[Rfam]
RNA sequence: GAUUUAUAAAGAAGUGUGGAGAGUACAGGCUCUGUGAAACACUAGCAACCUUCAAACCGGGUAAAACCGGAAAGGAAACGGUGCUAAAUCCUGCUCCCGGCAAGGUGCCGAGGAGAACUAUAAACC
Numbered sequence: 001g002a003u004u005u006a007u008a009a010a011g012a013a014g015u016g017u018g019g020a021g022a023g024u025a026c027a028g029g030c031u032c033u034g035u036g037a038a039a040c041a042c043u044a045g046c047a048a049c050c051u052u053c054a055a056a057c058c059g060g061g062u063a064a065a066a067c068c069g070g071a072a073a074g075g076a077a078a079c080g081g082u083g084c085u086a087a088a089u090c091c092u093g094c095u096c097c098c099g100g101c102a103a104g105g106u107g108c109c110g111a112g113g114a115g116a117a118c119u120a121u122a123a124a125c126c
Base pairs, nucleotide, nucleotide: 001126003124004123005122006121007120008119013043014042015041016040017039021032022031023030026093027092028091029090044085045084046083047082049081050080051077052076053075094115095114096113097112
RNA: SAM riboswitch aptamer (S box leader)